[Rfam]
The family of this 72-nucleotide RNA sequence from Aphis craccivora is "mir-3017 microRNA precursor family". The family's consensus secondary structure was predicted with RNAalifold. It scores 53 bits against the family's covariance model. On this family, see Legeai et al., BMC Genomics 2010: "Bioinformatic prediction, deep sequencing of microRNAs and expression analysis during phenotypic plasticity in the pea aphid, Acyrthosiphon pisum". The family has 2 seed sequences and 58 matches in Rfam 15.1. The organism belongs to Aphis, within Eukaryota.
RNA sequence: UCGUGUUCUGUUCCCGACUCGACCGGCUCCAGACUGGCGGGCGCCCUCCGCGGUCCGCCACAGAACACGGGA
Numbered sequence: 001u002c003g004u005g006u007u008c009u010g011u012u013c014c015c016g017a018c019u020c021g022a023c024c025g026g027c028u029c030c031a032g033a034c035u036g037g038c039g040g041g042c043g044c045c046c047u048c049c050g051c052g053g054u055c056c057g058c059c060a061c062a063g064a065a066c067a068c069g070g071g072a
Stems, first nucleotide, its partner, number of pairs: 001070011014057001016055003020050002025045003